Source information: The family of this 221-nucleotide sequence is "HNH endonuclease-associated RNA and ORF (HEARO) RNA". On this family, see Weinberg et al., Nature 2009: "Exceptional structured noncoding RNAs revealed by bacterial metagenome analysis". A search with the family's covariance model found it, with a score of 150 bits.

RNA sequence: GUCAAUAACCCACCUCUAAAGAGGUGGGCUUGUCGAUGAGGCAAGCCCUGAUUGACCAGACUGAGUUCCCUCAACCAAAAGGGAACUACGUUAUCCCGGCUAUGAUACCCUCGGAUGCUUCCUUAGUCCGUUGGUCUAUCGCAUAGCAUUAAACAGUCCUUAGAGGUAGGGACAGUGUGCAUGCAUAACAAACCGGGAUAACUUUGUCGAAGGGAGACGGC
Numbered sequence: 001g002u003c004a005a006u007a008a009c010c011c012a013c014c015u016c017u018a019a020a021g022a023g024g025u026g027g028g029c030u031u032g033u034c035g036a037u038g039a040g041g042c043a044a045g046c047c048c049u050g051a052u053u054g055a056c057c058a059g060a061c062u063g064a065g066u067u068c069c070c071u072c073a074a075c076c077a078a079a080a081g082g083g084a085a086c087u088a089c090g091u092u093a094u095c096c097c098g099g100c101u102a103u104g105a106u107a108c109c110c111u112c113g114g115a116u117g118c119u120u121c122c123u124u125a126g127u128c129c130g131u132u133g134g135u136c137u138a139u140c141g142c143a144u145a146g147c148a149u150u151a152a153a154c155a156g157u158c159c160u161u162a163g164a165g166g167u168a169g170g171g172a173c174a175g176u177g178u179g180c181a182u183g184c185a186u187a188a189c190a191a192a193c194c195g196g197g198a199u200a201a202c203u204u205u206g207u208c209g210a211a212g213g214g215a216g217a218c219g220g221c
Stems, first nucleotide, its partner, number of pairs: 001056006008049001010028002012025002015022002029045006059208003063204001064087008090202010105139002109133001112130005119216006141184004146180004153176002156173007